[Rfam]
RNA: pan motif
Organism: Ruminiclostridium herbifermentans
RNA sequence: UAGCUAGUAUUCUUUUGAAACUAGACUUAGGUUUUAUUUUCUUUAUAAUACGACUUAUAUCCCUUGGGAAUAAGAACGGAGG
Numbered sequence: 001u002a003g004c005u006a007g008u009a010u011u012c013u014u015u016u017g018a019a020a021c022u023a024g025a026c027u028u029a030g031g032u033u034u035u036a037u038u039u040u041c042u043u044u045a046u047a048a049u050a051c052g053a054c055u056u057a058u059a060u061c062c063c064u065u066g067g068g069a070a071u072a073a074g075a076a077c078g079g080a081g082g
Base pairs, nucleotide, nucleotide: 002027003026004024005023006022007021008020010019011018051078052077054074055073056072057071058070060069061068062067